drz-agam-1 ribozyme: an 83-nucleotide RNA sequence from Hermetia illucens.
Lineage of the source: Eukaryota > Metazoa > Eumetabola > Aparaglossata > Hermetia.
The family's consensus secondary structure is taken from published work.

[Rfam]
RNA sequence: UGCUAUCAUAGAAACCCUAUCUCCACCUCCACGUGGUGACCGCUGGGAGCUCUUUCGUAACGAAAAACUGCAGACGGAGAAGG
Numbered sequence: 001u002g003c004u005a006u007c008a009u010a011g012a013a014a015c016c017c018u019a020u021c022u023c024c025a026c027c028u029c030c031a032c033g034u035g036g037u038g039a040c041c042g043c044u045g046g047g048a049g050c051u052c053u054u055u056c057g058u059a060a061c062g063a064a065a066a067a068c069u070g071c072a073g074a075c076g077g078a079g080a081a082g083g
Base pairs, nucleotide, nucleotide: 016083017082018081020079022077023076025037026036027035049069051067053065054064055063056062057061